RNA sequence: UGGUGCUGGCUGGAUGUAACAGCAACUCCAUGUGGAACUUGUGUCUGUUCCAGUGGAGGUGCUGUUACCUGCAGAGAGCCG
Numbered sequence: 001u002g003g004u005g006c007u008g009g010c011u012g013g014a015u016g017u018a019a020c021a022g023c024a025a026c027u028c029c030a031u032g033u034g035g036a037a038c039u040u041g042u043g044u045c046u047g048u049u050c051c052a053g054u055g056g057a058g059g060u061g062c063u064g065u066u067a068c069c070u071g072c073a074g075a076g077a078g079c080c081g
Base pairs, nucleotide, nucleotide: 010074011073012072016068017067018066019065020064021063022062023061026058027057028056029055030054031053033052034051035050